The record is a 132-nucleotide sequence from Hemibagrus wyckioides, which matches "U4atac minor spliceosomal RNA" in Rfam. Its Rfam clan is "U4 clan". It scores 94 bits against the family's covariance model. U4atac is an essential component of the minor U12-type spliceosome complex which is required for removal of the rarer class of eukaryotic introns (AT-AC, U12-type). Rfam classes the family as a spliceosomal small nuclear RNA.

RNA sequence: ACCUUCCUUGUCUCGGGGUGGCUUGGGCUGUUCAAUGAACGACUAGUGAGAGCAUCCCUGCUAACACCUAACCAACACAUCCAGCAUCACCUGAGCAUUUAAUGUUCAGGCUAUGGUGCAAUUUUUGGAACC
Numbered sequence: 001a002c003c004u005u006c007c008u009u010g011u012c013u014c015g016g017g018g019u020g021g022c023u024u025g026g027g028c029u030g031u032u033c034a035a036u037g038a039a040c041g042a043c044u045a046g047u048g049a050g051a052g053c054a055u056c057c058c059u060g061c062u063a064a065c066a067c068c069u070a071a072c073c074a075a076c077a078c079a080u081c082c083a084g085c086a087u088c089a090c091c092u093g094a095g096c097a098u099u100u101a102a103u104g105u106u107c108a109g110g111c112u113a114u115g116g117u118g119c120a121a122u123u124u125u126u127g128g129a130a131c132c
Stems, first nucleotide, its partner, number of pairs: 006018004021061002027056001029054005039047002084119006090110008